[Rfam]
RNA sequence: CCGGGCGCCGGAGAGGGCUUGGCCACGGGCGCCGGCGACGUCCGGCGUUCCUCGUGACCCAUGUUGCUUUGCAAGAGGAUAUGGAGAUGAGGA
Numbered sequence: 001c002c003g004g005g006c007g008c009c010g011g012a013g014a015g016g017g018c019u020u021g022g023c024c025a026c027g028g029g030c031g032c033c034g035g036c037g038a039c040g041u042c043c044g045g046c047g048u049u050c051c052u053c054g055u056g057a058c059c060c061a062u063g064u065u066g067c068u069u070u071g072c073a074a075g076a077g078g079a080u081a082u083g084g085a086g087a088u089g090a091g092g093a
Stems, first nucleotide, its partner, number of pairs: 001022006008016002027050009051091005059084007067077003